[Rfam]
RNA sequence: AAUCAUAGAGGUUAAGAAAUCUGCCGAUAACGCUAUUUUAUAGAAAUGUGGGAGAGGAGGCAGUCCCACCUAUGUUU
Numbered sequence: 001a002a003u004c005a006u007a008g009a010g011g012u013u014a015a016g017a018a019a020u021c022u023g024c025c026g027a028u029a030a031c032g033c034u035a036u037u038u039u040a041u042a043g044a045a046a047u048g049u050g051g052g053a054g055a056g057g058a059g060g061c062a063g064u065c066c067c068a069c070c071u072a073u074g075u076u077u
Base pairs, nucleotide, nucleotide: 001077002076004074005073006072007071008070011031012030013029014028021063022062023061024060025059033043034042035041048069049068050067051066052065